The family of this 56-nucleotide RNA sequence is "Plastid-psbA-3 3UTR RNA". The family's RNA type in Rfam is cis-regulatory element. Plastid psbA-3 is a non-coding RNA (ncRNA) present in plastids. It was identified in inverted repeat sequences in the 3 prime untranslate region (3UTR) of photosystem II quinone-binding protein (psbA). It is one of the family's seed sequences. The base pairs follow the family's consensus structure, which was predicted with LocARNA. Clan: Plastid-psbA 3UTR RNA clan.

Nucleotides: 056
Base pairs, nucleotide, nucleotide: 002054005051006050007049008048009047010046011045012044013043014042015041020037021036022035023034024033025032
Number, partner (000 for none) and nucleotide at each position: 001000a002054a003000a004000a005051g006050g007049a008048g009047c010046a011045a012044u013043a014042a015041c016000a017000a018000a019000a020037c021036u022035c023034u024033u025032g026000u027000u028000u029000u030000a031000u032025c033024a034023a035022g036021a037020g038000g039000u040000u041015g042014u043013u044012a045011u046010u047009g048008c049007u050006c051005c052000c053000c054002u055000u056000a